[Rfam]
RNA: NoRC associated RNA, pRNA
Organism: Propithecus coquereli
RNA sequence: GUGCUGGGGACCUGUUGGGGACAGGUGGCCAUGUCGAGUGUCGCGGGGGCAGGCGUGGUCAAGUGGCCCGUCCCCGUCCCCCGGUG
Numbered sequence: 001g002u003g004c005u006g007g008g009g010a011c012c013u014g015u016u017g018g019g020g021a022c023a024g025g026u027g028g029c030c031a032u033g034u035c036g037a038g039u040g041u042c043g044c045g046g047g048g049g050c051a052g053g054c055g056u057g058g059u060c061a062a063g064u065g066g067c068c069c070g071u072c073c074c075c076g077u078c079c080c081c082c083g084g085u086g
Stems, first nucleotide, its partner, number of pairs: 004083001006081001008080002018075003027067001029065001030063001033059004038054002
Dot-bracket structure: ...(.(.((........(((......(.((..((((.((.............)).))))...).).).....)))...))).)...